[Rfam]
RNA: MIR480 microRNA precursor family
Organism: Salix viminalis
RNA sequence: UGAUCAGUCAAGGAUAAAUCCUUGUAUGGUUGUAGAAGACUCACAAGGAACUGCUUAGAAUCACCCGUUAUCGCAAAUUAAUUACAUCACAAACAAUGGCCUCAUGAUAAUUACUUAUCUCCUUGUACUAACU
Numbered sequence: 001u002g003a004u005c006a007g008u009c010a011a012g013g014a015u016a017a018a019u020c021c022u023u024g025u026a027u028g029g030u031u032g033u034a035g036a037a038g039a040c041u042c043a044c045a046a047g048g049a050a051c052u053g054c055u056u057a058g059a060a061u062c063a064c065c066c067g068u069u070a071u072c073g074c075a076a077a078u079u080a081a082u083u084a085c086a087u088c089a090c091a092a093a094c095a096a097u098g099g100c101c102u103c104a105u106g107a108u109a110a111u112u113a114c115u116u117a118u119c120u121c122c123u124u125g126u127a128c129u130a131a132c133u
Base pairs, nucleotide, nucleotide: 004131006129007128009125012122014120018118019117024114025113027110029108030107031106032105033104